[Rfam]
The family of this 85-nucleotide RNA sequence from Helianthus annuus is "small nucleolar RNA snoR114". The base pairs follow the family's consensus structure, which was predicted with RNAalifold. The family's RNA type in Rfam is C/D-box small nucleolar RNA. Rfam links the family to the GO terms RNA processing and nucleolus. On this family, see Chen and Wu, Nucleic Acids Res 2009: "Mining small RNA sequencing data: a new approach to identify small nucleolar RNAs in Arabidopsis". Rfam 15.1 lists 1,645 matches to the family in 183 species.
RNA sequence: AUGCAAUGAAGAAACCGCGCUUAUUGUGAUGUAGGGUCAUCACAGCUGUUCGAUUAUUCGAAACAUUUAAAGCGCAUCUGAGCAU
Numbered sequence: 001a002u003g004c005a006a007u008g009a010a011g012a013a014a015c016c017g018c019g020c021u022u023a024u025u026g027u028g029a030u031g032u033a034g035g036g037u038c039a040u041c042a043c044a045g046c047u048g049u050u051c052g053a054u055u056a057u058u059c060g061a062a063a064c065a066u067u068u069a070a071a072g073c074g075c076a077u078c079u080g081a082g083c084a085u
Stems, first nucleotide, its partner, number of pairs: 001085004